[Rfam]
RNA sequence: UUAAAAAUAAAAGCGCCAGAACUAAUAUGAAUUUCAAUUUAGUUGACGAGGAUGGGGAGUAUCGAUUCUUCGGCGGGUGCCCCACGGUAUGCACUACCGUAAAAGGUUAAUAAAACUACGAAGUAAUUUGUAGCACAACAUUAGCUAGGUGUUAAAA
Number, nucleotide and partner (000 for none) at each position: 001u000002u000003a000004a000005a000006a000007a000008u000009a000010a000011a000012a000013g000014c000015g000016c000017c000018a000019g000020a044021a043022c042023u041024a040025a039026u000027a000028u000029g035030a000031a000032u000033u000034u000035c029036a000037a000038u000039u025040u024041a023042g022043u021044u020045g000046a000047c000048g000049a000050g000051g000052a000053u084054g083055g082056g081057g080058a000059g000060u000061a000062u073063c072064g071065a070066u000067u000068c000069u000070u065071c064072g063073g062074c000075g000076g000077g000078u000079g000080c057081c056082c055083c054084a053085c099086g098087g097088u096089a095090u000091g000092c000093a000094c000095u089096a088097c087098c086099g085100u000101a000102a000103a000104a000105g146106g145107u144108u143109a142110a000111u000112a000113a000114a000115a000116c133117u132118a131119c130120g129121a128122a127123g000124u000125a000126a000127u122128u121129u120130g119131u118132a117133g116134c000135a000136c000137a000138a000139c000140a000141u000142u109143a108144g107145c106146u105147a000148g000149g000150u000151g000152u000153u000154a000155a000156a000157a000
The record is a 157-nucleotide RNA from Clostridium gasigenes, which matches "glmS glucosamine-6-phosphate activated ribozyme aptamer" in Rfam. This entry contains a glucosamine-6-phosphate activated ribozyme that is found in the mRNA for GlmS. GlmS is an enzyme that uses fructose-6-phosphate and glutamine to generate glucosamine-6-phosphate. A search with the family's covariance model found it, with a score of 104 bits. The source organism's lineage runs through Bacteria, Bacillati, Clostridia, Clostridiaceae and Clostridium.